[Rfam]
RNA sequence: CGGCGCAGGCCGUGGCGGCCACCACGGCAGCGCCUAACCACCAACCACGUUGCAAAGGAGCGUGAUUCAUGGCUUU
Numbered sequence: 001c002g003g004c005g006c007a008g009g010c011c012g013u014g015g016c017g018g019c020c021a022c023c024a025c026g027g028c029a030g031c032g033c034c035u036a037a038c039c040a041c042c043a044a045c046c047a048c049g050u051u052g053c054a055a056a057g058g059a060g061c062g063u064g065a066u067u068c069a070u071g072g073c074u075u076u
Base pairs, nucleotide, nucleotide: 002034003033004032005031006030009028010027011026012025013024014023015022038072039071040070046064047063048062049061051059053057
The record is a 76-nucleotide RNA from Tepidicella xavieri, which matches "R1162-like plasmid antisense RNA" in Rfam. The family's consensus secondary structure was predicted with PFOLD. On this family, see Kim and Meyer, Nucleic Acids Res 1986: "Copy-number of broad host-range plasmid R1162 is regulated by a small RNA". The source organism's lineage runs through Bacteria, Pseudomonadati, Pseudomonadota, Betaproteobacteria and Tepidicella. Gene Ontology term of the family: plasmid copy number maintenance.